[Rfam]
RNA sequence: UUUCCUCAACUCCUUAUCAUUCCCGCGUCCAGCCCGACAUGGGAAGCUGGACGGAGAACUGAUAAGGGCUUGUGGUUUA
Numbered sequence: 001u002u003u004c005c006u007c008a009a010c011u012c013c014u015u016a017u018c019a020u021u022c023c024c025g026c027g028u029c030c031a032g033c034c035c036g037a038c039a040u041g042g043g044a045a046g047c048u049g050g051a052c053g054g055a056g057a058a059c060u061g062a063u064a065a066g067g068g069c070u071u072g073u074g075g076u077u078u079a
Stems, first nucleotide, its partner, number of pairs: 011068009020058003023054002028050002